[Rfam]
RNA sequence: UGCACAGAUGAUGACGCUCAAGGGACUUAAUACUGACACUUGAUGAUUUUUUGUUCUGAUGUGC
Numbered sequence: 001u002g003c004a005c006a007g008a009u010g011a012u013g014a015c016g017c018u019c020a021a022g023g024g025a026c027u028u029a030a031u032a033c034u035g036a037c038a039c040u041u042g043a044u045g046a047u048u049u050u051u052u053g054u055u056c057u058g059a060u061g062u063g064c
Stems, first nucleotide, its partner, number of pairs: 002064005

A member of the RNA family "Small nucleolar RNA SNORD82" from Hemibagrus wyckioides, 64 nucleotides long. Taxonomically the source falls in Hemibagrus (Eukaryota, Deuterostomia, Ostariophysi, Otophysi). The base pairs follow the family's consensus structure, which was predicted with PFOLD. A reference for the family is Galardi et al. (2002), "Purified box C/D snoRNPs are able to reproduce site-specific 2'-O-methylation of target RNA in vitro", Mol Cell Biol. snoRNA U82 or Z25 is found in both humans and mice. Gene Ontology terms of the family: nucleolus and RNA processing. A search with the family's covariance model found it, with a score of 60 bits. By type it is a C/D-box small nucleolar RNA.